[Rfam]
Bacterial small signal recognition particle RNA: a 98-nucleotide sequence from Streptococcus pyogenes. The base pairs follow the family's consensus structure, which is taken from published work. By type it is a non-coding RNA gene. Clan: SRP clan.
RNA sequence: AUAAUAGGCGGAGCAACACUUGUGCGUGAAGUGGGUCAGGGGAGGAAUCCAGCAGCCCUAAGCGAUUUUCGGGUGUGUGCUCUUUUUUUUGUUGACUU
Dot-bracket structure: ...(((((.(((((.(((((((..(((.....((((....(((....)))....))))...)))..)...)))))))..)))).)...))))......